[Rfam]
RNA: SAM riboswitch aptamer (S box leader)
RNA sequence: GUAAUAUCAAGAGCAGCUGAGGGACGGGCCCGAUGACGCUGCGGCAACCUGCCAGCGGUAAGGUGCCAAUUCCUACAGGCUAUUCCUGAAAGAUAUCGU
Numbered sequence: 001g002u003a004a005u006a007u008c009a010a011g012a013g014c015a016g017c018u019g020a021g022g023g024a025c026g027g028g029c030c031c032g033a034u035g036a037c038g039c040u041g042c043g044g045c046a047a048c049c050u051g052c053c054a055g056c057g058g059u060a061a062g063g064u065g066c067c068a069a070u071u072c073c074u075a076c077a078g079g080c081u082a083u084u085c086c087u088g089a090a091a092g093a094u095a096u097c098g099u
Stems, first nucleotide, its partner, number of pairs: 001099002004096005013042005021031003026074003043067004048063002050060004071091001076088004